Background
This 105-nucleotide RNA sequence from Anaerosporomusa subterranea belongs to the Rfam family "SAM riboswitch aptamer (S box leader)". The source organism's lineage runs through Bacteria, Bacillati, Bacillota, Acetonemataceae and Anaerosporomusa. A search with the family's covariance model found it, with a score of 76 bits.
[Rfam]
RNA sequence: UACUCAUCAAGAGUUGGUGGAGGGACAGGCCCGAUGAAACCGCGGCAACCAUUUGAGCAUUCUCAAAACGGUGCCAAGUCCUGCGGAAUAGCCGCAAGAUGGGAG
Number, nucleotide and partner (000 for none) at each position: 001u105002a000003c103004u102005c101006a100007u099008c098009a000010a000011g000012a000013g043014u000015u042016g041017g040018u039019g000020g000021a000022g032023g031024g030025a000026c083027a082028g081029g080030c024031c023032c022033g000034a000035u000036g000037a000038a000039a018040c017041c016042g015043c013044g075045g074046c073047a072048a000049c071050c070051a000052u067053u066054u065055g064056a000057g000058c000059a000060u000061u000062c000063u000064c055065a054066a053067a052068a000069c000070g050071g049072u047073g046074c045075c044076a000077a000078g000079u097080c029081c028082u027083g026084c094085g093086g092087a000088a000089u000090a000091g000092c086093c085094g084095c000096a000097a079098g008099a007100u006101g005102g004103g003104a000105g001